Annotation: The record is a 67-nucleotide RNA sequence from Sinocyclocheilus anshuiensis, which matches "Small nucleolar RNA SNORD19" in Rfam. The match comes from Rfam's covariance-model search (40 bits). NCBI's taxonomy places the organism under Eukaryota, Craniata, Otomorpha, Cypriniphysae, Sinocyclocheilus. Its family is annotated with nucleolus and RNA processing in the Gene Ontology. On this family, see Huttenhofer et al., EMBO J 2001: "RNomics: an experimental approach that identifies 201 candidates for novel, small, non-messenger RNAs in mouse". Its Rfam clan is "SNORD19 clan".
RNA sequence: GAGGUAAGAUGAAAAGAAAAUACAAUCUAAACCUUUCUGAAGACAGUCAGAUUCCCUCAGCGAUACA
Numbered sequence: 001g002a003g004g005u006a007a008g009a010u011g012a013a014a015a016g017a018a019a020a021u022a023c024a025a026u027c028u029a030a031a032c033c034u035u036u037c038u039g040a041a042g043a044c045a046g047u048c049a050g051a052u053u054c055c056c057u058c059a060g061c062g063a064u065a066c067a
Stems, first nucleotide, its partner, number of pairs: 001058004